The record is an 89-nucleotide RNA from Oceanococcus atlanticus, which matches "t44 RNA" in Rfam. It is annotated as a small RNA. This family consists of a number of bacterial RNA genes of between 135 and 170 bases in length. The t44 gene has been identified in several species of enteric bacteria but homologs have also been identified in Pseudomonas and Coxiella species. The t44 gene is found between the map and rpsB genes in all species in the full alignment apart from Shigella flexneri.

RNA sequence: CCGAAUAUCGGCUUAAUCCGCACACAUGCCAAAAACCUUGUCCGGGGGUCCUGCUCGCAGGCCGGUCAUGGGGUAUGUGGAGGCCCAAC
Numbered sequence: 001c002c003g004a005a006u007a008u009c010g011g012c013u014u015a016a017u018c019c020g021c022a023c024a025c026a027u028g029c030c031a032a033a034a035a036c037c038u039u040g041u042c043c044g045g046g047g048g049u050c051c052u053g054c055u056c057g058c059a060g061g062c063c064g065g066u067c068a069u070g071g072g073g074u075a076u077g078u079g080g081a082g083g084c085c086c087a088a089c
Stems, first nucleotide, its partner, number of pairs: 023079008037070001039068002042065004050061004
Notes
A reference for the family is Tjaden et al. (2002), "Transcriptome analysis of Escherichia coli using high-density oligonucleotide probe arrays", Nucleic Acids Res. Lineage of the source: Bacteria > Pseudomonadota > Gammaproteobacteria > Chromatiales > Oceanococcus. A search with the family's covariance model found it, with a score of 57 bits.